[Rfam]
RNA sequence: UCUCGGAGAGCGCGAACCGGAGCCGGGGAACCAAGUUUUUGGGGUGAAUCCCUGAUGACCGGGGCCAGCGAUGGCUGCGGUCGGAGGGGUAGGGCGAUCUUUGAGCCCGAAUCCGUCAGCUCACCUGGUAGACGUUCAAAGAAAGAGGA
Numbered sequence: 001u002c003u004c005g006g007a008g009a010g011c012g013c014g015a016a017c018c019g020g021a022g023c024c025g026g027g028g029a030a031c032c033a034a035g036u037u038u039u040u041g042g043g044g045u046g047a048a049u050c051c052c053u054g055a056u057g058a059c060c061g062g063g064g065c066c067a068g069c070g071a072u073g074g075c076u077g078c079g080g081u082c083g084g085a086g087g088g089g090u091a092g093g094g095c096g097a098u099c100u101u102u103g104a105g106c107c108c109g110a111a112u113c114c115g116u117c118a119g120c121u122c123a124c125c126u127g128g129u130a131g132a133c134g135u136u137c138a139a140a141g142a143a144a145g146a147g148g149a
Base pairs, nucleotide, nucleotide: 001021002020003019022129023128024127025126026125027124032041033040042114043113044112050089051088052087053086092108093107094106095105
RNA: c-di-AMP riboswitch aptamer (ydaO/yuaA leader)